[Rfam]
RNA sequence: GGAAGUGUACUACUGAACAUAGAUCGCUAGUCUAAUUUGUAUCCGGCAGAUCUGCUCAGUUGAGUUGUUGACCCCACGUGGUUUCUAGAAGCCGAGACGUUCUCCCGAUGACUUUGCCUCACGGUCGAGAACGUCUGACUACUCGGCCACGCUUUCCAAAUUAUCAUAUUUGAUGACACUUCCAUACCAGGCACUAUCAGCUUGUAUAGUCAGCCAUUUUUUUUU
Numbered sequence: 001g002g003a004a005g006u007g008u009a010c011u012a013c014u015g016a017a018c019a020u021a022g023a024u025c026g027c028u029a030g031u032c033u034a035a036u037u038u039g040u041a042u043c044c045g046g047c048a049g050a051u052c053u054g055c056u057c058a059g060u061u062g063a064g065u066u067g068u069u070g071a072c073c074c075c076a077c078g079u080g081g082u083u084u085c086u087a088g089a090a091g092c093c094g095a096g097a098c099g100u101u102c103u104c105c106c107g108a109u110g111a112c113u114u115u116g117c118c119u120c121a122c123g124g125u126c127g128a129g130a131a132c133g134u135c136u137g138a139c140u141a142c143u144c145g146g147c148c149a150c151g152c153u154u155u156c157c158a159a160a161u162u163a164u165c166a167u168a169u170u171u172g173a174u175g176a177c178a179c180u181u182c183c184a185u186a187c188c189a190g191g192c193a194c195u196a197u198c199a200g201c202u203u204g205u206a207u208a209g210u211c212a213g214c215c216a217u218u219u220u221u222u223u224u225u
Base pairs, nucleotide, nucleotide: 001183002182003181004180005179006178007177008176013059014058015057018054019053022052023051024050025049026047027046028045030044033041190215191214192213193210194209195208196207197206
A member of the RNA family "Arthropod 7SK RNA" from Rhodnius prolixus, 225 nucleotides long. On this family, see Gruber et al., Mol Biol Evol 2008: "Arthropod 7SK RNA". NCBI's taxonomy places the organism under Eukaryota, Pancrustacea, Paraneoptera, Heteroptera, Rhodnius. By type it is a non-coding RNA gene. Rfam 15.1 lists 229 matches to the family in 137 species.